[Rfam]
Shown here is a 102-nucleotide RNA from Martelella mediterranea, a member of the family "TPP riboswitch aptamer (THI element)". Vitamin B(1) in its active form thiamin pyrophosphate (TPP) is an essential coenzyme that is synthesised by coupling of pyrimidine and thiazole moieties in bacteria. The previously detected thiamin-regulatory element, thi box was extended, resulting in a new, highly conserved RNA secondary structure, the THI element, which is widely distributed in eubacteria and also occurs in some archaea. Pairs were carried over by alignment from the consensus structure, which is taken from published work. Lineage of the source: Bacteria > Pseudomonadota > Alphaproteobacteria > Hyphomicrobiales > Martelella mediterranea. Its family is annotated with thiamine pyrophosphate binding in the Gene Ontology.
RNA sequence: GACGCAUCCGAGGGGUGUGUCCGUGACACUGAGAUGGCCGAUGGCCGAACCCUUGAACCUGAUCCGGGUUAUGCCGGCGUAGGAACGGAGUUUGGUCUUGAG
Numbered sequence: 001g002a003c004g005c006a007u008c009c010g011a012g013g014g015g016u017g018u019g020u021c022c023g024u025g026a027c028a029c030u031g032a033g034a035u036g037g038c039c040g041a042u043g044g045c046c047g048a049a050c051c052c053u054u055g056a057a058c059c060u061g062a063u064c065c066g067g068g069u070u071a072u073g074c075c076g077g078c079g080u081a082g083g084a085a086c087g088g089a090g091u092u093u094g095g096u097c098u099u100g101a102g
Stems, first nucleotide, its partner, number of pairs: 007089004011053004016047001017029005036046004058083004064077004